A member of the RNA family "mir-191 microRNA precursor family" from Podarcis muralis, 91 nucleotides long.
Lineage of the source: Eukaryota > Craniata > Squamata > Lacertidae > Podarcis.
Pairs were carried over by alignment from the consensus structure, which was predicted with RNAalifold.
Rfam 15.1 lists 621 matches to the family in 455 species.
[Rfam]
RNA sequence: AGCAGGAGAGCAGGGAACGAAAUCCAAGCGCAGCUGGAAUGCUAAGAGAAAAACAGCUGCUUUUGGGAUUCCGUUGCCCGCUAACACGCUG
Numbered sequence: 001a002g003c004a005g006g007a008g009a010g011c012a013g014g015g016a017a018c019g020a021a022a023u024c025c026a027a028g029c030g031c032a033g034c035u036g037g038a039a040u041g042c043u044a045a046g047a048g049a050a051a052a053a054c055a056g057c058u059g060c061u062u063u064u065g066g067g068a069u070u071c072c073g074u075u076g077c078c079c080g081c082u083a084a085c086a087c088g089c090u091g
Stems, first nucleotide, its partner, number of pairs: 009082003013078001017074003021070003024066004030060007